The family of this 129-nucleotide RNA sequence from Tupaia belangeri is "Small Cajal body specific RNA 4". Gene Ontology terms of the family: RNA processing, nucleolus and Cajal body. On this family, see Darzacq et al., EMBO J 2002: "Cajal body-specific small nuclear RNAs: a novel class of 2'-O-methylation and pseudouridylation guide RNAs". scaRNAs are a specific class of small nuclear RNAs which localise to the Cajal bodies and guide the modification of RNA polymerase II transcribed spliceosomal RNAs U1, U2, U4, U5 and U12. ACA26 belongs to the H/ACA box class of guide RNAs as it has the predicted hairpin-hinge-hairpin-tail structure, conserved H/ACA-box motifs and is found associated with GAR1. The sequence is in the family's curated seed alignment.

RNA sequence: ACUGGAGGACUAAGAAGGCUGAGUCUGAUGAAGCAAGACUUUGCUGAUACCCUCCUCCUAGAGAAAAGGGUUGAAGAGAGCAGCCGUCAUUGGAGAAUGUCGCAGGGCUGACUGUACCACCCAACAUUG
Numbered sequence: 001a002c003u004g005g006a007g008g009a010c011u012a013a014g015a016a017g018g019c020u021g022a023g024u025c026u027g028a029u030g031a032a033g034c035a036a037g038a039c040u041u042u043g044c045u046g047a048u049a050c051c052c053u054c055c056u057c058c059u060a061g062a063g064a065a066a067a068g069g070g071u072u073g074a075a076g077a078g079a080g081c082a083g084c085c086g087u088c089a090u091u092g093g094a095g096a097a098u099g100u101c102g103c104a105g106g107g108c109u110g111a112c113u114g115u116a117c118c119a120c121c122c123a124a125c126a127u128u129g
Stems, first nucleotide, its partner, number of pairs: 002061002004058006017045003021041006068122004079113002081110005087104001091102003